[Rfam]
RNA sequence: GCUGACAGCGCGGGAGAGUCCGUGUCGCUCGCUUCGGAAACGGGGCUGAUGGCAUGGCGCCGAAGGAGCAACCGCCCCGGAAUCUCUCAGGCAAAAGGACCGCGCCCUUGCC
Number, nucleotide and partner (000 for none) at each position: 001g000002c000003u000004g000005a000006c000007a000008g105009c104010g103011c102012g101013g100014g000015a000016g000017a000018g000019u000020c057021c056022g055023u054024g053025u052026c051027g050028c000029u000030c000031g000032c000033u000034u000035c000036g000037g000038a000039a000040a000041c000042g000043g000044g000045g000046c000047u000048g000049a000050u027051g026052g025053c024054a023055u022056g021057g020058c000059g092060c091061c090062g088063a087064a000065g000066g086067a085068g084069c000070a000071a000072c080073c079074g000075c000076c000077c000078c000079g073080g072081a000082a000083u000084c068085u067086c066087u063088c062089a000090g061091g060092c059093a000094a000095a000096a000097g000098g000099a000100c013101c012102g011103c010104g009105c008106c000107c000108u000109u000110g000111c000112c000
RNA: Glycine riboswitch aptamer